[Rfam]
RNA: mir-3473 microRNA precursor family
RNA sequence: ACCACUAAGCCAUCUCUCCAGCCCAACAAGUAUUUUUUUAAGUUAAAAAAAAGGGGGGGGCUGGAGAGAUGGCUUAGCGGU
Numbered sequence: 001a002c003c004a005c006u007a008a009g010c011c012a013u014c015u016c017u018c019c020a021g022c023c024c025a026a027c028a029a030g031u032a033u034u035u036u037u038u039u040a041a042g043u044u045a046a047a048a049a050a051a052a053g054g055g056g057g058g059g060g061c062u063g064g065a066g067a068g069a070u071g072g073c074u075u076a077g078c079g080g081u
Stems, first nucleotide, its partner, number of pairs: 002080002005077020